[Rfam]
RNA sequence: AAUAGGGGAGUGAAUCAGGCUUACUUUAACUCUUUUUUAUCAGUCAGUCUUUUUCUCUCUCCUAUU
Numbered sequence: 001a002a003u004a005g006g007g008g009a010g011u012g013a014a015u016c017a018g019g020c021u022u023a024c025u026u027u028a029a030c031u032c033u034u035u036u037u038u039a040u041c042a043g044u045c046a047g048u049c050u051u052u053u054u055c056u057c058u059c060u061c062c063u064a065u066u
Stems, first nucleotide, its partner, number of pairs: 001066008010057001012055002017050005023044003
Record summary: mir-14 microRNA precursor family: a 66-nucleotide sequence from Sitophilus oryzae. On this family, see Skalsky et al., BMC Genomics 2010: "Identification of microRNAs expressed in two mosquito vectors, Aedes albopictus and Culex quinquefasciatus".